[Rfam]
RNA sequence: GGAGCGGGCCGGGCCCCUCUGGCGUCGGAAGUUCCUCCAAGCUUCCACGUGAUGUCGGACCGCAUCG
Number, nucleotide and partner (000 for none) at each position: 001g000002g000003a000004g000005c000006g061007g060008g000009c058010c057011g056012g055013g000014c000015c000016c000017c000018u000019c000020u000021g000022g050023c049024g048025u047026c000027g046028g045029a044030a043031g042032u041033u040034c000035c000036u000037c000038c000039a000040a033041g032042c031043u030044u029045c028046c027047a025048c024049g023050u022051g000052a000053u000054g000055u012056c011057g010058g009059a000060c007061c006062g000063c000064a000065u000066c000067g000